RNA: SAM (S-adenosyl methionine) riboswitch aptamer
Organism: Rhodococcus sp. P1Y
RNA sequence: GGUCAUGAGUACCAGCAUCAAGCCCCGGCUUGCUGGUCGGCAACCCUCCAACCGCGGUGGGGUGCCCCGGGUGACAAGACCUGGUUGGUCGGCGACGCGUACCUGCGCCGCCAACGAGCAAGCGCGGGUC
Numbered sequence: 001g002g003u004c005a006u007g008a009g010u011a012c013c014a015g016c017a018u019c020a021a022g023c024c025c026c027g028g029c030u031u032g033c034u035g036g037u038c039g040g041c042a043a044c045c046c047u048c049c050a051a052c053c054g055c056g057g058u059g060g061g062g063u064g065c066c067c068c069g070g071g072u073g074a075c076a077a078g079a080c081c082u083g084g085u086u087g088g089u090c091g092g093c094g095a096c097g098c099g100u101a102c103c104u105g106c107g108c109c110g111c112c113a114a115c116g117a118g119c120a121a122g123c124g125c126g127g128g129u130c
Stems, first nucleotide, its partner, number of pairs: 001081004009038001011037006021030002039066003044062003048057002084119003088115002091112003